Source information:
The family of this 169-nucleotide RNA from Dorea sp. AF36-15AT is "Clostridiales-1 RNA". It is annotated as a small RNA. The source organism's lineage runs through Bacteria, Clostridia, Lachnospirales, Lachnospiraceae and Dorea. A search with the family's covariance model found it, with a score of 144 bits. Rfam 15.1 lists 1,172 matches to the family in 137 species.

[Rfam]
Nucleotides: 169
Stems, first nucleotide, its partner, number of pairs: 001169007010069004017062015032045005073125004078120003083115002086112001091108001093106005128159007139149004
Number, partner (000 for none) and nucleotide at each position: 001169u002168g003167a004166u005165g006164c007163c008000a009000g010069a011068g012067u013066c014000a015000a016000a017062a018061g019060g020059u021058c022057u023056u024055u025054c026053a027052u028051c029050c030049a031048c032045a033044u034043g035042a036041g037000c038000u039000u040000g041036c042035u043034c044033a045032u046000a047000a048031g049030u050029g051028g052027a053026u054025g055024a056023a057022a058021g059020a060019c061018c062017u063000u064000g065000g066013g067012a068011c069010u070000c071000g072000c073125c074124c075123c076122g077000a078120u079119a080118u081000g082000a083115g084114c085000u086112u087000a088000a089000a090000a091108g092000c093106g094105g095104g096103a097102u098000g099000a100000u101000a102097a103096u104095c105094c106093c107000a108091c109000g110000a111000u112086a113000u114084g115083c116000g117000a118080a119079u120078g121000g122076u123075g124074g125073g126000u127000a128159g129158g130157a131156u132155u133154g134153u135000g136000g137000g138000a139149g140148u141147g142146u143000g144000u145000a146142a147141c148140a149139c150000a151000g152000a153134a154133c155132a156131a157130u158129c159128c160000g161000u162000u163007g164006g165005c166004a167003u168002c169001a